The record is a 50-nucleotide RNA sequence from Palleronia aestuarii, which matches "SAM/SAH riboswitch aptamer" in Rfam. Pairs were carried over by alignment from the consensus structure, which is taken from published work. The match comes from Rfam's covariance-model search (44 bits). For this family Rfam cites "The structure of the SAM/SAH-binding riboswitch" (Weickhmann et al., Nucleic Acids Res, 2019). The organism belongs to Palleronia, within Bacteria.
RNA sequence: AACGACGCACAACGGCUUCCUGGCGUGCGUGGCGAAAAGUUAUCGGAGCG
Numbered sequence: 001a002a003c004g005a006c007g008c009a010c011a012a013c014g015g016c017u018u019c020c021u022g023g024c025g026u027g028c029g030u031g032g033c034g035a036a037a038a039g040u041u042a043u044c045g046g047a048g049c050g
Stems, first nucleotide, its partner, number of pairs: 005030006013022002015049003019046002